[Rfam]
RNA sequence: GAAUACAGAUUAAUAGAACCUUAUAUAAUUCCGGGAAUAUGGACCGGAAGUCUCUACCGGGUGGCCGUAAACUACCCUGGCUAUAAGGUGUGAUGGUUUAUUA
Numbered sequence: 001g002a003a004u005a006c007a008g009a010u011u012a013a014u015a016g017a018a019c020c021u022u023a024u025a026u027a028a029u030u031c032c033g034g035g036a037a038u039a040u041g042g043a044c045c046g047g048a049a050g051u052c053u054c055u056a057c058c059g060g061g062u063g064g065c066c067g068u069a070a071a072c073u074a075c076c077c078u079g080g081c082u083a084u085a086a087g088g089u090g091u092g093a094u095g096g097u098u099u100a101u102u103a
Stems, first nucleotide, its partner, number of pairs: 018089008029049006058079001059077006
A member of the RNA family "Purine riboswitch aptamer" from Thermoanaerobacteraceae bacterium SP2, 103 nucleotides long.
The match comes from Rfam's covariance-model search (82 bits).
Its family is annotated with purine nucleobase biosynthetic process in the Gene Ontology.
NCBI's taxonomy places the organism under Bacteria, Bacillati, Clostridia, Thermoanaerobacterales, Thermoanaerobacteraceae.